Rfam assigns this 54-nucleotide RNA sequence from Shimia marina to the family "COG3860 RNA". The base pairs follow the family's consensus structure, which is taken from published work. The family's RNA type in Rfam is cis-regulatory element.
RNA sequence: GGGUCCGCAGUUCACCCAGGCGCCGCCGGUCAUAUGACUUCGCUAAACCUGCCA
Numbered sequence: 001g002g003g004u005c006c007g008c009a010g011u012u013c014a015c016c017c018a019g020g021c022g023c024c025g026c027c028g029g030u031c032a033u034a035u036g037a038c039u040u041c042g043c044u045a046a047a048c049c050u051g052c053c054a
Stems, first nucleotide, its partner, number of pairs: 001017004028039004
Dot-bracket structure: ((((.........))))..........((((....))))...............